[Rfam]
RNA sequence: ACUCUUUAACGCUGCACUUCUUCGUUAACAUACGAUGUUUUAAGGAAAAACAUAUAAAAACGAAGGGUUAAGGUCGGAGAAUCAUCCUCAAUUAUUGUUCGUGAAGAACCUAGCGCUAGUAUGUGCUUGCAACUGCAUUAGAAAGAUACAGCUUGAACUUUAUAUAGUUAUAUAGCUUUGAGAGGUCAGUUGCGAGGAUUAGAUGCAAUAAUGUCUUUAAGUGCAAUGUGCAGCACUCCUACUUUGGAGAUAACUUAAUUCCGACUAGUCUUUAGAGU
Numbered sequence: 001a002c003u004c005u006u007u008a009a010c011g012c013u014g015c016a017c018u019u020c021u022u023c024g025u026u027a028a029c030a031u032a033c034g035a036u037g038u039u040u041u042a043a044g045g046a047a048a049a050a051c052a053u054a055u056a057a058a059a060a061c062g063a064a065g066g067g068u069u070a071a072g073g074u075c076g077g078a079g080a081a082u083c084a085u086c087c088u089c090a091a092u093u094a095u096u097g098u099u100c101g102u103g104a105a106g107a108a109c110c111u112a113g114c115g116c117u118a119g120u121a122u123g124u125g126c127u128u129g130c131a132a133c134u135g136c137a138u139u140a141g142a143a144a145g146a147u148a149c150a151g152c153u154u155g156a157a158c159u160u161u162a163u164a165u166a167g168u169u170a171u172a173u174a175g176c177u178u179u180g181a182g183a184g185g186u187c188a189g190u191u192g193c194g195a196g197g198a199u200u201a202g203a204u205g206c207a208a209u210a211a212u213g214u215c216u217u218u219a220a221g222u223g224c225a226a227u228g229u230g231c232a233g234c235a236c237u238c239c240u241a242c243u244u245u246g247g248a249g250a251u252a253a254c255u256u257a258a259u260u261c262c263g264a265c266u267a268g269u270c271u272u273u274a275g276a277g278u
Stems, first nucleotide, its partner, number of pairs: 001278003008272002013233001018228001021064005035053006075263005086197004097109004112127005129193007150177003235251001236249004